[Rfam]
Annotation:
The record is a 480-nucleotide part of an RNA from Jiangella asiatica, which matches "Bacterial large subunit ribosomal RNA" in Rfam.

RNA sequence: CUCCCCGAAAUGCAUUUAGGUGCAGCGUCGCGUGUUUCUUGCCGGAGGUAGAGCACUGGAUGGCUGAUGGGCCCUACAAGGUUACUGACGUCAGCCAAACUCCGAAUGCCGGUAAGUGAGAGCGCGGCAGUGAGACUGCGGGCGAUAAGGUUCGUAGUCGAGAGGGAAACAGCCCAGAUCACCAGCUAAGGCCCCUAAGCGUGUGCUAAGUGGAAAAGGAUGUGGAGUUGCGAAGACAACCAGGAGGUUGGCUUAGAAGCAGCCAUCCUUGAAAGAGUGCGUAAUAGCUCACUGGUCAAGUGAUUCUGCGCCGACAAUGUAGCGGGGCUCAAGCACACCGCCGAAGCUGUGACAAUCACACGUUAGCCCAGCAUCCCUUCCUUGUGGGGGGGUGUUCAGGUGUGUGGUUGGGUAGGGGAGCGUCGUGUGGCGGUUGAAGCGGCGGGGUGACCCAGUCGUGGACGCUACACGAGUGAGAAU
Numbered sequence: 001c002u003c004c005c006c007g008a009a010a011u012g013c014a015u016u017u018a019g020g021u022g023c024a025g026c027g028u029c030g031c032g033u034g035u036u037u038c039u040u041g042c043c044g045g046a047g048g049u050a051g052a053g054c055a056c057u058g059g060a061u062g063g064c065u066g067a068u069g070g071g072c073c074c075u076a077c078a079a080g081g082u083u084a085c086u087g088a089c090g091u092c093a094g095c096c097a098a099a100c101u102c103c104g105a106a107u108g109c110c111g112g113u114a115a116g117u118g119a120g121a122g123c124g125c126g127g128c129a130g131u132g133a134g135a136c137u138g139c140g141g142g143c144g145a146u147a148a149g150g151u152u153c154g155u156a157g158u159c160g161a162g163a164g165g166g167a168a169a170c171a172g173c174c175c176a177g178a179u180c181a182c183c184a185g186c187u188a189a190g191g192c193c194c195c196u197a198a199g200c201g202u203g204u205g206c207u208a209a210g211u212g213g214a215a216a217a218g219g220a221u222g223u224g225g226a227g228u229u230g231c232g233a234a235g236a237c238a239a240c241c242a243g244g245a246g247g248u249u250g251g252c253u254u255a256g257a258a259g260c261a262g263c264c265a266u267c268c269u270u271g272a273a274a275g276a277g278u279g280c281g282u283a284a285u286a287g288c289u290c291a292c293u294g295g296u297c298a299a300g301u302g303a304u305u306c307u308g309c310g311c312c313g314a315c316a317a318u319g320u321a322g323c324g325g326g327g328c329u330c331a332a333g334c335a336c337a338c339c340g341c342c343g344a345a346g347c348u349g350u351g352a353c354a355a356u357c358a359c360a361c362g363u364u365a366g367c368c369c370a371g372c373a374u375c376c377c378u379u380c381c382u383u384g385u386g387g388g389g390g391g392g393u394g395u396u397c398a399g400g401u402g403u404g405u406g407g408u409u410g411g412g413u414a415g416g417g418g419a420g421c422g423u424c425g426u427g428u429g430g431c432g433g434u435u436g437a438a439g440c441g442g443c444g445g446g447g448u449g450a451c452c453c454a455g456u457c458g459u460g461g462a463c464g465c466u467a468c469a470c471g472a473g474u475g476a477g478a479a480u
Stems, first nucleotide, its partner, number of pairs: 001420006011024005026130001027128007036121001038116008051103001052101002057097003061093004069085001070083004134159010164175003179352004184348003190342003199339001201338006218312002222309010239296005245269003250264003270274001275290001279288002353410012421475001423472010439459005444453003
Lineage of the source: Bacteria > Bacillati > Actinomycetota > Jiangellales > Jiangella. Gene Ontology terms of the family: ribosome and structural constituent of ribosome. A reference for the family is Yusupov et al. (2001), "Crystal structure of the ribosome at 5.5 A resolution", Science.